[Rfam]
RNA sequence: CGUGAGGGACGACCCUCCCGAACACCUCACACGGGGACGGCCCCG
Numbered sequence: 001c002g003u004g005a006g007g008g009a010c011g012a013c014c015c016u017c018c019c020g021a022a023c024a025c026c027u028c029a030c031a032c033g034g035g036g037a038c039g040g041c042c043c044c045g
Stems, first nucleotide, its partner, number of pairs: 001020002004017005032045005
The record is a 45-nucleotide RNA from Microbacterium aerolatum, which matches "Guanidine-II riboswitch aptamer (mini-ykkC)" in Rfam. Rfam links the family to the GO term regulation of gene expression. About the family: Simpler in structure and has fewer highly conserved nucleotide positions than the ykkC-yxkD leader. Despite this each of its two stem-loop structures directly bind free guanidine. Therefore, mini-ykkC RNA motif represents a distinct class of guanidine-sensing RNAs. NCBI's taxonomy places the organism under Bacteria, Bacillati, Actinomycetota, Micrococcales, Microbacterium. The family's consensus secondary structure is taken from published work.